[Rfam]
RNA sequence: GCUAUGUCUAGGCUGAUCCCCGAAAACCCGUACACCCCUACGGGCUGGCAUAGCCGUCAGAAUUAGGGG
Numbered sequence: 001g002c003u004a005u006g007u008c009u010a011g012g013c014u015g016a017u018c019c020c021c022g023a024a025a026a027c028c029c030g031u032a033c034a035c036c037c038c039u040a041c042g043g044g045c046u047g048g049c050a051u052a053g054c055c056g057u058c059a060g061a062a063u064u065a066g067g068g069g
Stems, first nucleotide, its partner, number of pairs: 001054008011021002027044005035069005
Dot-bracket structure: ((((((((..((.......)).....(((((...[[[[[)))))..))))))))..........]]]]]
The family of this 69-nucleotide RNA sequence from Shigella genomosp. SF-2015 is "int-alpA RNA". Lineage of the source: Bacteria > Pseudomonadati > Enterobacterales > Shigella > Shigella genomosp. SF-2015. Acidobacteria (1 example), Planctomycetes (1 example), Proteobacteria.